Small nucleolar RNA SNORD115: a 79-nucleotide RNA from Trichechus manatus. The family has 32 seed sequences and 3,387 matches in Rfam 15.1. Rfam links the family to the GO terms nucleolus and RNA processing. Rfam classes the family as a C/D-box small nucleolar RNA.
RNA sequence: GGCAAUGAUGACACCUAAACUUGUCUUCAAGAGUGAUGAUGACAUAAAAAUCCUGCUCAAUAGAAUUAUGUUGAGGACC
Number, nucleotide and partner (000 for none) at each position: 001g079002g078003c073004a072005a000006u070007g069008a000009u000010g000011a000012c000013a000014c000015c000016u000017a000018a000019a000020c000021u000022u000023g000024u000025c000026u000027u000028c000029a000030a000031g000032a000033g000034u000035g000036a000037u000038g000039a000040u000041g000042a000043c000044a000045u000046a000047a000048a000049a000050a000051u000052c000053c000054u000055g000056c000057u000058c000059a000060a000061u000062a000063g000064a000065a000066u000067u000068a000069u007070g006071u000072u004073g003074a000075g000076g000077a000078c002079c001